[Rfam]
RNA sequence: UAGUGCAGGGAUCGCCCCCCGUCAGCGAGUUUCGCCCACGGGGGCCUUCGUG
Numbered sequence: 001u002a003g004u005g006c007a008g009g010g011a012u013c014g015c016c017c018c019c020c021g022u023c024a025g026c027g028a029g030u031u032u033c034g035c036c037c038a039c040g041g042g043g044g045c046c047u048u049c050g051u052g
Base pairs, nucleotide, nucleotide: 016044017043018042019041020040021039022038025035026034027033028032
Shown here is a 52-nucleotide sequence from Shimia thalassica, a member of the family "ffh sRNA". It scores 67 bits against the family's covariance model. The source organism's lineage runs through Bacteria, Pseudomonadota, Rhodobacterales, Roseobacteraceae and Shimia. On this family, see Meyer et al., BMC Genomics 2009: "Identification of candidate structured RNAs in the marine organism 'Candidatus Pelagibacter ubique'".